[Rfam]
RNA sequence: ACUCGAUAAAGGCAAACCAGGCGAAAGCCUGGGCACGCAAAGCUAUAGGGGCUAAAGCGCUGAUUCCGGCGCCAAGCCAGCCAGUUGCCGAA
Numbered sequence: 001a002c003u004c005g006a007u008a009a010a011g012g013c014a015a016a017c018c019a020g021g022c023g024a025a026a027g028c029c030u031g032g033g034c035a036c037g038c039a040a041a042g043c044u045a046u047a048g049g050g051g052c053u054a055a056a057g058c059g060c061u062g063a064u065u066c067c068g069g070c071g072c073c074a075a076g077c078c079a080g081c082c083a084g085u086u087g088c089c090g091a092a
Stems, first nucleotide, its partner, number of pairs: 012038002017032006041086004048082002050078003057072006